[Rfam]
RNA sequence: GUUACUUCACAGUCGUUCUUCACUGGCUAGCUUUAUGUGGCAGCACCUUAAAGCUGCCAGUUGAAGAGCUGUUGUGGGUAAC
Numbered sequence: 001g002u003u004a005c006u007u008c009a010c011a012g013u014c015g016u017u018c019u020u021c022a023c024u025g026g027c028u029a030g031c032u033u034u035a036u037g038u039g040g041c042a043g044c045a046c047c048u049u050a051a052a053g054c055u056g057c058c059a060g061u062u063g064a065a066g067a068g069c070u071g072u073u074g075u076g077g078g079u080a081a082c
Base pairs, nucleotide, nucleotide: 004079005078006077009075010074011073016068017067018066019065020064021063025058026057027056029055030054031053032052033051034050035049

The record is an 82-nucleotide RNA from Danio rerio, which matches "mir-22 microRNA precursor family" in Rfam. Rfam 15.1 lists 884 matches to the family in 639 species. The base pairs follow the family's consensus structure, which was predicted with RNAalifold. The sequence is in the family's curated seed alignment. A reference for the family is Fu et al. (2005), "Identification of human fetal liver miRNAs by a novel method", FEBS Lett. Lineage of the source: Eukaryota > Vertebrata > Euteleostomi > Actinopterygii > Danio. Its family is annotated with miRNA-mediated post-transcriptional gene silencing and RISC complex in the Gene Ontology.